[Rfam]
RNA sequence: GUUCUCCUUACAGCAAAAUUCCAUCCAACCUUUCAAUUCUUUAAAAAAAAAAUCGAAAACCCAGAGAACUG
Numbered sequence: 001g002u003u004c005u006c007c008u009u010a011c012a013g014c015a016a017a018a019u020u021c022c023a024u025c026c027a028a029c030c031u032u033u034c035a036a037u038u039c040u041u042u043a044a045a046a047a048a049a050a051a052a053u054c055g056a057a058a059a060c061c062c063a064g065a066g067a068a069c070u071g
Stems, first nucleotide, its partner, number of pairs: 001069006
Shown here is a 71-nucleotide RNA sequence from Polysphondylium violaceum, a member of the family "Class I RNA from Dictyostelium". It scores 42 bits against the family's covariance model. Taxonomically the source falls in Polysphondylium (Eukaryota, Evosea, Eumycetozoa, Dictyosteliaceae). Dictyostelium Class I RNA was first reported for Aspegren et al. 2004 in Dictyostelium discoideum. Sucgang et al. 2011 identify putative homologs of Class I RNA in D. discoideum and D. purpureum.